[Rfam]
RNA sequence: GGGGAUGACCGGAUUCGACAGGGGUGUAGGGCGCGAAACUGCAGGCCGGGGAUGCCUCGACCCCGUGACGAAGGGGCAAAAAAACAACUGCCAACACAGAAUACGCUCUAGCCGCCUAAUUUAGCUGCGGCUACGUCCACUCAGUUCCUUCUCCGGUGGAGCUGAGAUGGGCGUCGAGAAACCGGAGUGCGGCGCUAGCGCUUGCCGGAGCGCGAACGCCUAAGACUAAAUCCGGCUGGCUUGAGUAACCCUGCCGGUCGGGAGUACUCAAGCGAGAAAGCAAAGAUCGGCUAAGCCUGUAGGAUGUUUCGGUCCAAAGCCUCUGGACGGGGGUUCGACUCCCCCCAUCUCCACCA
Number, nucleotide and partner (000 for none) at each position: 001g352002g351003g350004g349005a348006u347007g346008a000009c000010c000011g000012g000013a000014u000015u000016c000017g000018a000019c325020a324021g323022g322023g321024g320025u319026g000027u317028a000029g315030g314031g313032c312033g000034c311035g310036a309037a308038a307039c306040u000041g000042c299043a298044g297045g296046c295047c065048g064049g063050g062051g061052a000053u078054g077055c076056c075057u074058c073059g000060a000061c051062c050063c049064c048065g047066u000067g000068a000069c000070g000071a000072a000073g058074g057075g056076g055077c054078a053079a000080a000081a000082a000083a000084a000085c000086a000087a000088c000089u000090g000091c000092c000093a000094a000095c000096a000097c000098a000099g000100a000101a000102u000103a000104c000105g000106c000107u000108c000109u133110a132111g131112c130113c129114g128115c127116c000117u000118a000119a000120u000121u000122u000123a000124g000125c000126u000127g115128c114129g113130g112131c111132u110133a109134c173135g172136u171137c170138c169139a168140c166141u165142c164143a163144g000145u161146u160147c159148c158149u000150u000151c187152u186153c185154c184155g183156g182157u181158g148159g147160a146161g145162c000163u143164g142165a141166g140167a000168u139169g138170g137171g136172c135173g134174u000175c000176g000177a000178g000179a000180a000181a157182c156183c155184g154185g153186a152187g151188u000189g000190c000191g220192g219193c218194g217195c000196u215197a000198g213199c000200g000201c000202u000203u000204g236205c235206c234207g233208g232209a000210g000211c000212g000213c198214g000215a196216a000217c194218g193219c192220c191221u000222a000223a000224g000225a000226c000227u000228a000229a000230a000231u000232c208233c207234g206235g205236c204237u000238g000239g273240c272241u271242u270243g269244a268245g267246u266247a265248a000249c262250c261251c260252u000253g291254c290255c289256g288257g287258u286259c285260g251261g250262g249263a000264g000265u247266a246267c245268u244269c243270a242271a241272g240273c239274g000275a000276g000277a000278a000279a000280g000281c000282a000283a000284a000285g259286a258287u257288c256289g255290g254291c253292u000293a000294a000295g046296c045297c044298u043299g042300u000301a000302g000303g000304a000305u000306g039307u038308u037309u036310c035311g034312g032313u031314c030315c029316a000317a027318a000319g025320c024321c023322u022323c021324u020325g019326g000327a000328c000329g345330g344331g343332g342333g341334u000335u000336c000337g000338a000339c000340u000341c333342c332343c331344c330345c329346c007347a006348u005349c004350u003351c002352c001353a000354c000355c000356a000
The record is a 356-nucleotide RNA from Thermobaculum terrenum, which matches "transfer-messenger RNA" in Rfam. About the family: Bacterial tmRNA, also known as 10Sa RNA or SsrA, is named for its dual tRNA and mRNA-like properties. The family's consensus secondary structure is taken from published work.